RNA sequence: GGUUCCAUAGCUCAGUUGGUUAGAGUGUCAUGCUAAUAACGUGAAUUUCGAGGGUUCGACCCCCUCUGGAACCA
Numbered sequence: 001g002g003u004u005c006c007a008u009a010g011c012u013c014a015g016u017u018g019g020u021u022a023g024a025g026u027g028u029c030a031u032g033c034u035a036a037u038a039a040c041g042u043g044a045a046u047u048u049c050g051a052g053g054g055u056u057c058g059a060c061c062c063c064c065u066c067u068g069g070a071a072c073c074a
Base pairs, nucleotide, nucleotide: 001073002072003071004070005069006068007067010026011025012024013023028044029043030042031041032040050066051065052064053063054062